[Rfam]
RNA sequence: CCCGCGCCCAAACCCAAGAGCCGCCGUUUGCGGUAACGGCGGCUCAAGCAGCGGCGCGGACAGCACGCGAGCCUCGUCGCCUUUGGGGGGCUGUGCCGUGCCCCCCGGAGUGAAUGUGGAGGUUCGACAGGC
Numbered sequence: 001c002c003c004g005c006g007c008c009c010a011a012a013c014c015c016a017a018g019a020g021c022c023g024c025c026g027u028u029u030g031c032g033g034u035a036a037c038g039g040c041g042g043c044u045c046a047a048g049c050a051g052c053g054g055c056g057c058g059g060a061c062a063g064c065a066c067g068c069g070a071g072c073c074u075c076g077u078c079g080c081c082u083u084u085g086g087g088g089g090g091c092u093g094u095g096c097c098g099u100g101c102c103c104c105c106c107g108g109a110g111u112g113a114a115u116g117u118g119g120a121g122g123u124u125c126g127a128c129a130g131g132c
Stems, first nucleotide, its partner, number of pairs: 002059007019044010069125007081110011
RNA: Small nucleolar RNA SNORA68
Organism: Dasypus novemcinctus